[Rfam]
RNA sequence: GUAAAGAAAAACAAAUGUACUUAUAUAUGGUCAUAAUAAGGUUGACCGUUUCUACCCAGCACCGGAAAUGUUGGUCUAUAAGUAAAGAAGUGUCUUUA
Numbered sequence: 001g002u003a004a005a006g007a008a009a010a011a012c013a014a015a016u017g018u019a020c021u022u023a024u025a026u027a028u029g030g031u032c033a034u035a036a037u038a039a040g041g042u043u044g045a046c047c048g049u050u051u052c053u054a055c056c057c058a059g060c061a062c063c064g065g066a067a068a069u070g071u072u073g074g075u076c077u078a079u080a081a082g083u084a085a086a087g088a089a090g091u092g093u094c095u096u097u098a
Stems, first nucleotide, its partner, number of pairs: 018084008029047005056074006
Record summary
The record is a 98-nucleotide RNA sequence from Melissococcus plutonius, which matches "Purine riboswitch aptamer" in Rfam. Gene Ontology term of the family: purine nucleobase biosynthetic process. The source organism's lineage runs through Bacteria, Bacillati, Bacillota, Bacilli and Melissococcus plutonius.